The family of this 87-nucleotide sequence from Gossypium raimondii is "MIR398 microRNA precursor family".
[Rfam]
RNA sequence: GUUUACCCCAGAGGGGUGCCACCUAAGAACACAGGUCAUCCCUUAACCAAAUAGCUUGUGUUCUCAGGUCACCCCUUUGGGGUACAU
Numbered sequence: 001g002u003u004u005a006c007c008c009c010a011g012a013g014g015g016g017u018g019c020c021a022c023c024u025a026a027g028a029a030c031a032c033a034g035g036u037c038a039u040c041c042c043u044u045a046a047c048c049a050a051a052u053a054g055c056u057u058g059u060g061u062u063c064u065c066a067g068g069u070c071a072c073c074c075c076u077u078u079g080g081g082g083u084a085c086a087u
Stems, first nucleotide, its partner, number of pairs: 007081002011077004016072003026064011

Rfam links the family to the GO terms RISC complex and miRNA-mediated post-transcriptional gene silencing. NCBI's taxonomy places the organism under Eukaryota, Magnoliopsida, Pentapetalae, Malvaceae, Gossypium.